[Rfam]
The record is an 88-nucleotide RNA sequence from Bacillus sp. V5-8f, which matches "c-di-GMP-I riboswitch aptamer" in Rfam. Lineage of the source: Bacteria > Bacillati > Bacilli > Caryophanales > Bacillus. The match comes from Rfam's covariance-model search (74 bits).
Nucleotides: 088
Stems, first nucleotide, its partner, number of pairs: 012037002017032003021028002040082004045078003048073003055067003
Number, partner (000 for none) and nucleotide at each position: 001000u002000c003000a004000g005000u006000u007000u008000a009000a010000a011000g012037g013036c014000a015000a016000a017032c018031c019030u020000a021028u022027u023000g024000a025000a026000a027022a028021a029000g030019a031018g032017g033000g034000a035000c036013g037012c038000a039000a040082a041081g042080u043079c044000a045078c046077a047076g048073g049072u050071c051000u052000a053000a054000g055067g056066u057065a058000u059000g060000g061000u062000u063000u064000u065057u066056a067055c068000u069000a070000u071050g072049a073048c074000g075000g076047c077046u078045g079043g080042a081041c082040u083000a084000u085000c086000u087000g088000g